Source information: This 86-nucleotide RNA sequence from Gossypium mustelinum belongs to the Rfam family "MIR7486 microRNA precursor family". The organism belongs to Gossypium, within Eukaryota. It scores 68 bits against the family's covariance model. Rfam links the family to the GO terms miRNA-mediated post-transcriptional gene silencing and RISC complex. Pairs were carried over by alignment from the consensus structure, which was predicted with RNAalifold.
RNA sequence: CAUGUCAGAGCGUUUUGAUGACGUGCAACAAAGCGCGGCCUUGAGAGCGCGAUUUGCUGUCACGUCAGCAAAGUGUUCUGACGUGG
Numbered sequence: 001c002a003u004g005u006c007a008g009a010g011c012g013u014u015u016u017g018a019u020g021a022c023g024u025g026c027a028a029c030a031a032a033g034c035g036c037g038g039c040c041u042u043g044a045g046a047g048c049g050c051g052a053u054u055u056g057c058u059g060u061c062a063c064g065u066c067a068g069c070a071a072a073g074u075g076u077u078c079u080g081a082c083g084u085g086g
Stems, first nucleotide, its partner, number of pairs: 001085017019067003023063003026059002029056004034051004040045001